[Rfam]
RNA sequence: UGUCAUAAACCCGUAGAUCCGAUCUUGUGGUAAAUUUGACAACACAAGCUCGCCUCUGUGGGUCUCUGUCUC
Numbered sequence: 001u002g003u004c005a006u007a008a009a010c011c012c013g014u015a016g017a018u019c020c021g022a023u024c025u026u027g028u029g030g031u032a033a034a035u036u037u038g039a040c041a042a043c044a045c046a047a048g049c050u051c052g053c054c055u056c057u058g059u060g061g062g063u064c065u066c067u068g069u070c071u072c
Base pairs, nucleotide, nucleotide: 002070004068005067007065010062011061012060015057016056017055020052021051022050024048025047026046027045028044029043
The record is a 72-nucleotide RNA sequence from Megalops atlanticus, which matches "mir-10 microRNA precursor family" in Rfam. A search with the family's covariance model found it, with a score of 66 bits. Pairs were carried over by alignment from the consensus structure, which was predicted with PFOLD.